[Rfam]
RNA: eL15-Euryarchaeota ribosomal protein leader
RNA sequence: CGGGAUGCGUCCCGUGAAGGAAUGUGGCGUGGGAACACGCUGAACCUGGAU
Numbered sequence: 001c002g003g004g005a006u007g008c009g010u011c012c013c014g015u016g017a018a019g020g021a022a023u024g025u026g027g028c029g030u031g032g033g034a035a036c037a038c039g040c041u042g043a044a045c046c047u048g049g050a051u
Stems, first nucleotide, its partner, number of pairs: 001014005018047003026041005